The record is a 167-nucleotide part of an RNA from Heliothis virescens, which matches "Eukaryotic small subunit ribosomal RNA" in Rfam. It scores 967 bits against the family's covariance model. Clan: SSU clan. The family's consensus secondary structure is taken from published work. Gene Ontology terms of the family: ribosome and structural constituent of ribosome. A reference for the family is Yusupov et al. (2001), "Crystal structure of the ribosome at 5.5 A resolution", Science.

RNA sequence: CCGCCCGUCCUAGCACCGAUUGAAUUGAUUUUAGUGAGGUCUCGGACCGACCACGCGUGGCUUCCACGGCCCGUCGGCGUUCGCUGGGAAGUUGACCAAACUUGAUCAUUUAGAGGAAGUAAAAGUCGUAACAAGGUUUCCGUAGGGGAACCUGCGAAGGCACAUUU
Numbered sequence: 001c002c003g004c005c006c007g008u009c010c011u012a013g014c015a016c017c018g019a020u021u022g023a024a025u026u027g028a029u030u031u032u033a034g035u036g037a038g039g040u041c042u043c044g045g046a047c048c049g050a051c052c053a054c055g056c057g058u059g060g061c062u063u064c065c066a067c068g069g070c071c072c073g074u075c076g077g078c079g080u081u082c083g084c085u086g087g088g089a090a091g092u093u094g095a096c097c098a099a100a101c102u103u104g105a106u107c108a109u110u111u112a113g114a115g116g117a118a119g120u121a122a123a124a125g126u127c128g129u130a131a132c133a134a135g136g137u138u139u140c141c142g143u144a145g146g147g148g149a150a151c152c153u154g155c156g157a158a159g160g161c162a163c164a165u166u167u
Stems, first nucleotide, its partner, number of pairs: 001135001003132001006128002009125001011121002016116002020112001022111003026108003030105002033102003038097004043091001047087003051083001053080004059071004137159003141156006